Notes: A member of the RNA family "Staphylococcus sRNA sau-5949" from Staphylococcus sp. HGB0015, 58 nucleotides long. It is annotated as a small RNA. Taxonomically the source falls in Staphylococcus (Bacteria, Bacillati, Bacillota, Bacilli). The base pairs follow the family's consensus structure, which was predicted with mfold. The literature on the family includes a 2010 paper in J Mol Med (Berl) by Abu-Qatouseh et al., "Identification of differentially expressed small non-protein-coding RNAs in Staphylococcus aureus displaying both the normal and the small-colony variant phenotype".

[Rfam]
RNA sequence: AUGUCUCCUUUAUUUUUAGUUUAGUCACUUAAAAUUAUAGAGGCAUUUGCGCUAUUUU
Numbered sequence: 001a002u003g004u005c006u007c008c009u010u011u012a013u014u015u016u017u018a019g020u021u022u023a024g025u026c027a028c029u030u031a032a033a034a035u036u037a038u039a040g041a042g043g044c045a046u047u048u049g050c051g052c053u054a055u056u057u058u
Stems, first nucleotide, its partner, number of pairs: 001046007011037002014034003019028002